[Rfam]
RNA sequence: AAUUUCAGUACGCUUAAUUUCCGAUAGUGCUUAUCGGAAAGCGGGGGAACCAAUCUUCAGGGGCGAAUCGCACGAUCCUCGGAUCGCCGUAGGGAACCAUCUUUCCCGAGUCCGACAGCUAACCUCGUCAGCAGCAGAUGGGUCAAUG
Numbered sequence: 001a002a003u004u005u006c007a008g009u010a011c012g013c014u015u016a017a018u019u020u021c022c023g024a025u026a027g028u029g030c031u032u033a034u035c036g037g038a039a040a041g042c043g044g045g046g047g048a049a050c051c052a053a054u055c056u057u058c059a060g061g062g063g064c065g066a067a068u069c070g071c072a073c074g075a076u077c078c079u080c081g082g083a084u085c086g087c088c089g090u091a092g093g094g095a096a097c098c099a100u101c102u103u104u105c106c107c108g109a110g111u112c113c114g115a116c117a118g119c120u121a122a123c124c125u126c127g128u129c130a131g132c133a134g135c136a137g138a139u140g141g142g143u144c145a146a147u148g
Base pairs, nucleotide, nucleotide: 012132013131014130018040019039020038021037022036023035024034025033026032027031041128042127043126044125045124046123051060061113062112063111069089070088092107093106094105095104